Source information:
A member of the RNA family "UnaL2 LINE 3' element" from Clupea harengus, 54 nucleotides long. The family's RNA type in Rfam is cis-regulatory element. The eel long interspersed element (LINE) UnaL2 and its partner short interspersed element (SINE) share a conserved 3' tail containing a stem-loop that is critical for their retrotransposition. The literature on the family includes a 2004 paper in RNA by Baba et al., "Solution structure of an RNA stem-loop derived from the 3' conserved region of eel LINE UnaL2". The base pairs follow the family's consensus structure, which is taken from published work.
RNA sequence: UAAAAUCUCCCUUGUAUGUUGCUUUGGAUAAAAGCGUCUGCUAAAUGACUAAAU
Numbered sequence: 001u002a003a004a005a006u007c008u009c010c011c012u013u014g015u016a017u018g019u020u021g022c023u024u025u026g027g028a029u030a031a032a033a034g035c036g037u038c039u040g041c042u043a044a045a046u047g048a049c050u051a052a053a054u
Stems, first nucleotide, its partner, number of pairs: 013043001014041003020036006